[Rfam]
RNA: sok antitoxin (CssrC)
Organism: [Enterobacter] lignolyticus
RNA sequence: GGGUGCUUGAGGCUAACUGUCUCAGGUAUGACCGAAAGGCAGAUAGAUAAAAGCCCCAAGUGACUUUAACAUCAACUUGAGGCCCCUAUAUGCUCGACACAUGUAGAGUAGCCUCUUACCGACCUUUGGGUCAAGGAGAAGCAGGCUAUGAAG
Numbered sequence: 001g002g003g004u005g006c007u008u009g010a011g012g013c014u015a016a017c018u019g020u021c022u023c024a025g026g027u028a029u030g031a032c033c034g035a036a037a038g039g040c041a042g043a044u045a046g047a048u049a050a051a052a053g054c055c056c057c058a059a060g061u062g063a064c065u066u067u068a069a070c071a072u073c074a075a076c077u078u079g080a081g082g083c084c085c086c087u088a089u090a091u092g093c094u095c096g097a098c099a100c101a102u103g104u105a106g107a108g109u110a111g112c113c114u115c116u117u118a119c120c121g122a123c124c125u126u127u128g129g130g131u132c133a134a135g136g137a138g139a140a141g142c143a144g145g146c147u148a149u150g151a152a153g
Stems, first nucleotide, its partner, number of pairs: 001057003005054004011048001013046003017042006026033001058078004062073002079115005084108001086106007119145002123141001